[Rfam]
RNA sequence: AAUGAUACUUCCCCGAACCUGACAGCUCGGGGGCCGCGGUAGUAGGAGUAAUUCGCGGCGGAAGCGGCGCUCCGGCUGAAACAGGCCGCAGGGAGCUUUC
Numbered sequence: 001a002a003u004g005a006u007a008c009u010u011c012c013c014c015g016a017a018c019c020u021g022a023c024a025g026c027u028c029g030g031g032g033g034c035c036g037c038g039g040u041a042g043u044a045g046g047a048g049u050a051a052u053u054c055g056c057g058g059c060g061g062a063a064g065c066g067g068c069g070c071u072c073c074g075g076c077u078g079a080a081a082c083a084g085g086c087c088g089c090a091g092g093g094a095g096c097u098u099u100c
Base pairs, nucleotide, nucleotide: 011032012031013030014029015028033059034058035057036056037055038054060100061099062098063097064096065095068093073088074087075086076085